[Rfam]
RNA sequence: UUGGGAAGAGAAGAAUCCAUCCAUGGGGUCUUCAUAAAGAAUGGGGGGAUGGAGGUUGGGAUUCCUCACCUUCCUCCAAGAAUUAAACUGUUUGCCUGUGCUUAGCCAAUGGCUCAGCUAAACAGUAACACUGUGCGCAUGCAGGAGGAUCCUAUAGAGUAGCUACCUAGCCGAGGCUUUUGGCUAAUGCACAGGCAAACCGGCAAGUCACAGAACGGCAAUGGACUCGAUCAUAAGUCCU
Numbered sequence: 001u002u003g004g005g006a007a008g009a010g011a012a013g014a015a016u017c018c019a020u021c022c023a024u025g026g027g028g029u030c031u032u033c034a035u036a037a038a039g040a041a042u043g044g045g046g047g048g049a050u051g052g053a054g055g056u057u058g059g060g061a062u063u064c065c066u067c068a069c070c071u072u073c074c075u076c077c078a079a080g081a082a083u084u085a086a087a088c089u090g091u092u093u094g095c096c097u098g099u100g101c102u103u104a105g106c107c108a109a110u111g112g113c114u115c116a117g118c119u120a121a122a123c124a125g126u127a128a129c130a131c132u133g134u135g136c137g138c139a140u141g142c143a144g145g146a147g148g149a150u151c152c153u154a155u156a157g158a159g160u161a162g163c164u165a166c167c168u169a170g171c172c173g174a175g176g177c178u179u180u181u182g183g184c185u186a187a188u189g190c191a192c193a194g195g196c197a198a199a200c201c202g203g204c205a206a207g208u209c210a211c212a213g214a215a216c217g218g219c220a221a222u223g224g225a226c227u228c229g230a231u232c233a234u235a236a237g238u239c240c241u
Stems, first nucleotide, its partner, number of pairs: 047077003090200006109188002224239004
The record is a 241-nucleotide RNA from Theobroma umbraticum, which matches "Early nodulin 40" in Rfam.
The family's RNA type in Rfam is non-coding RNA gene.
Lineage of the source: Eukaryota > Embryophyta > Spermatophyta > rosids > Theobroma.
The base pairs follow the family's consensus structure, which is taken from published work.